[Rfam]
RNA sequence: AGGAGGAACAACCCCAGUGGUGGGGCCAGCUCUGGAGCCCUGCAUUCAGCUCCCAGAGUAGCUCCGGAGCUCUGUCUGCAGGGCCUGGAGGCUCCAGUGCGGU
Numbered sequence: 001a002g003g004a005g006g007a008a009c010a011a012c013c014c015c016a017g018u019g020g021u022g023g024g025g026c027c028a029g030c031u032c033u034g035g036a037g038c039c040c041u042g043c044a045u046u047c048a049g050c051u052c053c054c055a056g057a058g059u060a061g062c063u064c065c066g067g068a069g070c071u072c073u074g075u076c077u078g079c080a081g082g083g084c085c086u087g088g089a090g091g092c093u094c095c096a097g098u099g100c101g102g103u
Stems, first nucleotide, its partner, number of pairs: 002095004009087002012083003019076004025072001028071009040058002
Dot-bracket structure: .((((...((.(((....((((..(..(((((((((...((...............))....))))))))))))))....)))..))....))))........
Shown here is a 103-nucleotide sequence from Canis lupus, a member of the family "mir-8834 microRNA precursor family". The base pairs follow the family's consensus structure, which was predicted with RNAalifold.